[Rfam]
RNA: RAGATH-18 RNA
RNA sequence: CCCUCUGAAAGUUAUAUAAAAGGAAAGUAGAAUCCUAUUUAUAGUUUUCAAGAUCUGACUCGUAGAACAGGGAA
Numbered sequence: 001c002c003c004u005c006u007g008a009a010a011g012u013u014a015u016a017u018a019a020a021a022g023g024a025a026a027g028u029a030g031a032a033u034c035c036u037a038u039u040u041a042u043a044g045u046u047u048u049c050a051a052g053a054u055c056u057g058a059c060u061c062g063u064a065g066a067a068c069a070g071g072g073a074a
Stems, first nucleotide, its partner, number of pairs: 001072004010060004022056003030049003035044002